[Rfam]
This 62-nucleotide sequence from Coffea arabica belongs to the Rfam family "Plastid-psbA-3 3UTR RNA". From the family's description: Plastid psbA-3 is a non-coding RNA (ncRNA) present in plastids. The family's RNA type in Rfam is cis-regulatory element. On this family, see Richter et al., Plant Commun 2023: "Retrograde signaling in plants: A critical review focusing on the GUN pathway and beyond". Pairs were carried over by alignment from the consensus structure, which was predicted with LocARNA. The source organism's lineage runs through Eukaryota, Magnoliopsida, Mesangiospermae, eudicotyledons and Coffea.
RNA sequence: AAAUGAGCAAUAACUUCCUUCUUAUUCUCUUAAGAUAAGAGGGUCUUAUUGUUCUUUUAUUU
Numbered sequence: 001a002a003a004u005g006a007g008c009a010a011u012a013a014c015u016u017c018c019u020u021c022u023u024a025u026u027c028u029c030u031u032a033a034g035a036u037a038a039g040a041g042g043g044u045c046u047u048a049u050u051g052u053u054c055u056u057u058u059a060u061u062u
Base pairs, nucleotide, nucleotide: 001058002057003056005054006053007052008051009050010049011048012047013046019041020040021039022038023037024036028035